Record summary:
Shown here is a 116-nucleotide sequence from Callithrix jacchus, a member of the family "U5 spliceosomal RNA".
RNA sequence: AUACUCUGGUUUCUCUUCAGAUCACAUAAAUCUUUCGCCUUUUCCUUAAGAUUCCCAUGGAGAGGAACAAUUCUGAGUCUUUGUCUAAUUUUUUGAGAACUUGUUUCAGCAAGGCC
Numbered sequence: 001a002u003a004c005u006c007u008g009g010u011u012u013c014u015c016u017u018c019a020g021a022u023c024a025c026a027u028a029a030a031u032c033u034u035u036c037g038c039c040u041u042u043u044c045c046u047u048a049a050g051a052u053u054c055c056c057a058u059g060g061a062g063a064g065g066a067a068c069a070a071u072u073c074u075g076a077g078u079c080u081u082u083g084u085c086u087a088a089u090u091u092u093u094u095g096a097g098a099a100c101u102u103g104u105u106u107c108a109g110c111a112a113g114g115c116c
Base pairs, nucleotide, nucleotide: 003078004077005076006075009068010067011066012065013064014063015062016061017060018059019058029053030052031051032050033049034048100113101112102111103110
A search with the family's covariance model found it, with a score of 78 bits.
The family's RNA type in Rfam is spliceosomal small nuclear RNA.
Its family is annotated with spliceosomal tri-snRNP complex assembly and U5 snRNP in the Gene Ontology.